[Rfam]
Notes: Rfam assigns this 54-nucleotide RNA to the family "nhaA-I RNA". Rfam classes the family as a riboswitch. Rfam's curators put it in the seed alignment. Acidobacteria, Alphaproteobacteria, Betaproteobacteria and Gammaproteobacteria, Verrucomicrobia, cand. division NC10. The family's consensus secondary structure is taken from published work.
RNA sequence: GGGUGUCCGGUAAAUUGUUUACGGGCAGGUUUCAAGCUGGUCGGGCCGCCAGCA
Numbered sequence: 001g002g003g004u005g006u007c008c009g010g011u012a013a014a015u016u017g018u019u020u021a022c023g024g025g026c027a028g029g030u031u032u033c034a035a036g037c038u039g040g041u042c043g044g045g046c047c048g049c050c051a052g053c054a
Base pairs, nucleotide, nucleotide: 005026006025007024008023009022011021012020036053037052038051039050040049041048